[Rfam]
RNA sequence: GUCAAGUACCCCACGCCUGAAGGCGGGAGCUUGUAAAUAGGGGUGACUUCUGCCCGGCUAUUGCAAGCCCGGACUUGACCAGCCCCAGCCAAGGCUUUCUUCGGAAAGCUAUCGGGCUACGAUAUCGGGAGUGUUCAAGAACGUACCUUGAGAUGCUUGCCAGUCUCAAGCUCUACAAUUACUGAGUUAAUCAGCCAGACGGGGUUCGAGGCAGUGCUCAGUGGAUAUGCAGCCCGGUAUCUUCGGCGAGGCACACCUUAC
Numbered sequence: 001g002u003c004a005a006g007u008a009c010c011c012c013a014c015g016c017c018u019g020a021a022g023g024c025g026g027g028a029g030c031u032u033g034u035a036a037a038u039a040g041g042g043g044u045g046a047c048u049u050c051u052g053c054c055c056g057g058c059u060a061u062u063g064c065a066a067g068c069c070c071g072g073a074c075u076u077g078a079c080c081a082g083c084c085c086c087a088g089c090c091a092a093g094g095c096u097u098u099c100u101u102c103g104g105a106a107a108g109c110u111a112u113c114g115g116g117c118u119a120c121g122a123u124a125u126c127g128g129g130a131g132u133g134u135u136c137a138a139g140a141a142c143g144u145a146c147c148u149u150g151a152g153a154u155g156c157u158u159g160c161c162a163g164u165c166u167c168a169a170g171c172u173c174u175a176c177a178a179u180u181a182c183u184g185a186g187u188u189a190a191u192c193a194g195c196c197a198g199a200c201g202g203g204g205u206u207c208g209a210g211g212c213a214g215u216g217c218u219c220a221g222u223g224g225a226u227a228u229g230c231a232g233c234c235c236g237g238u239a240u241c242u243u244c245g246g247c248g249a250g251g252c253a254c255a256c257c258u259u260a261c
Base pairs, nucleotide, nucleotide: 001079002078003077004076005075006074007073010029012026016023017022030041031040032039033038082247083246084245087118088117089116090115121241122240123239124238125237126236127235128234129233143176144175147170148169149168150167151166152165153164154163155257157255159252160251161250179224180223181222182221183220184219185218186217187216192214194212195211196210198207199206
RNA: HNH endonuclease-associated RNA and ORF (HEARO) RNA